FMN riboswitch aptamer (RFN element): a 130-nucleotide RNA sequence from Microbacteriaceae bacterium MWH-Ta3. The base pairs follow the family's consensus structure, which is taken from published work. The RFN element is a highly conserved domain that is found frequently in the 5'-untranslated regions of prokaryotic mRNAs that encode for flavin mononucleotide (FMN) biosynthesis and transport proteins.
RNA sequence: AACGUGCUCCGGGGUCAGUGAAAAUCUGAGCCGGCGGUUAAAGUCCGCGACCCGCUAGACAUCAGUCGACACGGUUGAGCAGGUGAAAUUCCUGCACCGACGGUUAAAGUCCGGAUGGGAGGCGCACGUC
Numbered sequence: 001a002a003c004g005u006g007c008u009c010c011g012g013g014g015u016c017a018g019u020g021a022a023a024a025u026c027u028g029a030g031c032c033g034g035c036g037g038u039u040a041a042a043g044u045c046c047g048c049g050a051c052c053c054g055c056u057a058g059a060c061a062u063c064a065g066u067c068g069a070c071a072c073g074g075u076u077g078a079g080c081a082g083g084u085g086a087a088a089u090u091c092c093u094g095c096a097c098c099g100a101c102g103g104u105u106a107a108a109g110u111c112c113g114g115a116u117g118g119g120a121g122g123c124g125c126a127c128g129u130c
Base pairs, nucleotide, nucleotide: 003128004127005126006125007124009122010121016028017027018026030110031109032099033098034048035047036046037045043097044096052074053073079095080094081093082092083091101113102112103111